[Rfam]
RNA sequence: CUCUCCGAAAACUAUUUAGGUAGUGCCUCACGUAUGGCUGUUGGGGGUAGAGCACUGUUAUGGCUAGGGGGUCAUAGCGACUUACCAACCCAUGGCAAACUCCGAAUACCGACAAGUCGAGCGUGGGAGUCAGACAGCGGGUGCUAACGUCCGUUGUCGAGAGGGAAACAACCCAGACCGCCAGCUAAGGUCCCUAAAAUUGGCUAAGUGGGAAACGAAGUGGGAAGGCAUAGACAGUCAGGAGGUUGGCUUAGAAGCAGCCACCCUUUAAAGAUAGCGUAAUAGCUCACUGAUCGAGUCGUCCUGCGCGGAAGAUGUACCGGGGCUAAGCCGGUUACCGAAGCUGCGGGCGUGAUUUAAUCACGUGGUAGGAGAGCGUUCUGUAGGCCUGAGAAGGUGAGUCGAGAGGCUUGCUGGAGGUAUCAGAAGUGAGAAU
Numbered sequence: 001c002u003c004u005c006c007g008a009a010a011a012c013u014a015u016u017u018a019g020g021u022a023g024u025g026c027c028u029c030a031c032g033u034a035u036g037g038c039u040g041u042u043g044g045g046g047g048u049a050g051a052g053c054a055c056u057g058u059u060a061u062g063g064c065u066a067g068g069g070g071g072u073c074a075u076a077g078c079g080a081c082u083u084a085c086c087a088a089c090c091c092a093u094g095g096c097a098a099a100c101u102c103c104g105a106a107u108a109c110c111g112a113c114a115a116g117u118c119g120a121g122c123g124u125g126g127g128a129g130u131c132a133g134a135c136a137g138c139g140g141g142u143g144c145u146a147a148c149g150u151c152c153g154u155u156g157u158c159g160a161g162a163g164g165g166a167a168a169c170a171a172c173c174c175a176g177a178c179c180g181c182c183a184g185c186u187a188a189g190g191u192c193c194c195u196a197a198a199a200u201u202g203g204c205u206a207a208g209u210g211g212g213a214a215a216c217g218a219a220g221u222g223g224g225a226a227g228g229c230a231u232a233g234a235c236a237g238u239c240a241g242g243a244g245g246u247u248g249g250c251u252u253a254g255a256a257g258c259a260g261c262c263a264c265c266c267u268u269u270a271a272a273g274a275u276a277g278c279g280u281a282a283u284a285g286c287u288c289a290c291u292g293a294u295c296g297a298g299u300c301g302u303c304c305u306g307c308g309c310g311g312a313a314g315a316u317g318u319a320c321c322g323g324g325g326c327u328a329a330g331c332c333g334g335u336u337a338c339c340g341a342a343g344c345u346g347c348g349g350g351c352g353u354g355a356u357u358u359a360a361u362c363a364c365g366u367g368g369u370a371g372g373a374g375a376g377c378g379u380u381c382u383g384u385a386g387g388c389c390u391g392a393g394a395a396g397g398u399g400a401g402u403c404g405a406g407a408g409g410c411u412u413g414c415u416g417g418a419g420g421u422a423u424c425a426g427a428a429g430u431g432a433g434a435a436u
Base pairs, nucleotide, nucleotide: 001376002375003374004373005372006371011024012023013022014021015020026129027127028126029125030124031123032122033121035120036117039114040113041112042111043110044109050103051101052100056097057096058095060093061092062091063090067086068085069083070082071081072080073079133158134157135156136155137154138153139152140151141150142149163174164173165172178349179348180347181346183345184344185343189339190338191337198336199335200334201333202332203331204330216310217309220307221306222305223304224303225302227300228299229298237294238293239292240291241290243267244266245265248262249261250260268272273288277286278285350366351365352364353363354362355361356360377431379428380427381426382425383424387421388420389419396415397414398413399412400411401410402409403408
Dot-bracket structure: ((((((....(((((....))))).((((((((.((..((((((.....(((...(((.((((...(((((((.....))))).))...)))).)))..)).).....))))))..)..)))))))).)...((((((((((......))))))))))....(((......)))...((((.(((...(((......(((((((...........((..((((((.(((.......(((((.(((..(((.........)))..)))(...)(...((......)).).)))))...))).)))))).))...................))))))))))...)))))))(((((((...)))))))....))))))(.(((((...(((......((((((((....))))))))...)))..)))))..).....
The family of this 436-nucleotide part of an RNA from Oligella urethralis is "Bacterial large subunit ribosomal RNA".